This 161-nucleotide RNA from Motilibacter peucedani belongs to the Rfam family "c-di-AMP riboswitch aptamer (ydaO/yuaA leader)". NCBI's taxonomy places the organism under Bacteria, Actinomycetota, Actinomycetes, Motilibacteraceae, Motilibacter. The base pairs follow the family's consensus structure. This family represents a conserved RNA structure found upstream of the ydaO and yuaA genes in Bacillus subtilis and related genes in other bacteria.
RNA sequence: GCGGAAGCAGGGCCGUCUCGAGCGACCGUUCGGCAGGAGCGGGGGACCCACGUGAUGUGGGCGCUCUUCGGAGCGUCCUUGGGGUGAAGUCGCGACAGCGACCGGGUGACUCUUCCACCCGAACCCGACAGCUCACCUCGCAGGCGUCGGAGAAGGACUAC
Numbered sequence: 001g002c003g004g005a006a007g008c009a010g011g012g013c014c015g016u017c018u019c020g021a022g023c024g025a026c027c028g029u030u031c032g033g034c035a036g037g038a039g040c041g042g043g044g045g046a047c048c049c050a051c052g053u054g055a056u057g058u059g060g061g062c063g064c065u066c067u068u069c070g071g072a073g074c075g076u077c078c079u080u081g082g083g084g085u086g087a088a089g090u091c092g093c094g095a096c097a098g099c100g101a102c103c104g105g106g107u108g109a110c111u112c113u114u115c116c117a118c119c120c121g122a123a124c125c126c127g128a129c130a131g132c133u134c135a136c137c138u139c140g141c142a143g144g145c146g147u148c149g150g151a152g153a154a155g156g157a158c159u160a161c
Base pairs, nucleotide, nucleotide: 039141040140041139042138043137044136049081050080082126083125084124090101091100092099093098104120105119106118107117